Rfam assigns this 153-nucleotide RNA from Momordica charantia to the family "U12 minor spliceosomal RNA". Its family is annotated with U12 snRNP, mRNA branch site recognition and pre-mRNA branch point binding in the Gene Ontology. For this family Rfam cites "Pre-mRNA splicing: the discovery of a new spliceosome doubles the challenge" (Tarn and Steitz, Trends Biochem Sci, 1997). Taxonomically the source falls in Momordica (Eukaryota, Tracheophyta, Mesangiospermae, Gunneridae).
RNA sequence: UUGCCUUAAACUAAUGAGUAAGGAAAACAAAGUGGCCGGGGGGAUCCGGCCGCAGCGCUUCUAGUUGCAGUGCGCAAGAAUUUGUGGAGGGGUUAUAGGCUGGCCGAUCGUUGACGCUGCUUACUUCGCAGAACUCUUUCGUGCUGGCCUCCC
Numbered sequence: 001u002u003g004c005c006u007u008a009a010a011c012u013a014a015u016g017a018g019u020a021a022g023g024a025a026a027a028c029a030a031a032g033u034g035g036c037c038g039g040g041g042g043g044a045u046c047c048g049g050c051c052g053c054a055g056c057g058c059u060u061c062u063a064g065u066u067g068c069a070g071u072g073c074g075c076a077a078g079a080a081u082u083u084g085u086g087g088a089g090g091g092g093u094u095a096u097a098g099g100c101u102g103g104c105c106g107a108u109c110g111u112u113g114a115c116g117c118u119g120c121u122u123a124c125u126u127c128g129c130a131g132a133a134c135u136c137u138u139u140c141g142u143g144c145u146g147g148c149c150u151c152c153c
Base pairs, nucleotide, nucleotide: 004023005022006021007020008019032053033052034051035050036049037048038047039046055075056074057073058072091153092152097150098149099148100147101146102145103144105141106140110136117131118130119129120128